[Rfam]
RNA sequence: CCUCUCGCUUUCAGUAACAAGGAUUCAUCCUGUUGUUAAAUUAAAAGCCAACAGGGAAUCUCUGUUACUGGGGAUGAGGGU
Dot-bracket structure: ..........(((((((((.((((((..(((((((.............))))))))))))).)))))))))..........
Numbered sequence: 001c002c003u004c005u006c007g008c009u010u011u012c013a014g015u016a017a018c019a020a021g022g023a024u025u026c027a028u029c030c031u032g033u034u035g036u037u038a039a040a041u042u043a044a045a046a047g048c049c050a051a052c053a054g055g056g057a058a059u060c061u062c063u064g065u066u067a068c069u070g071g072g073g074a075u076g077a078g079g080g081u
Stems, first nucleotide, its partner, number of pairs: 011071009021061006029055007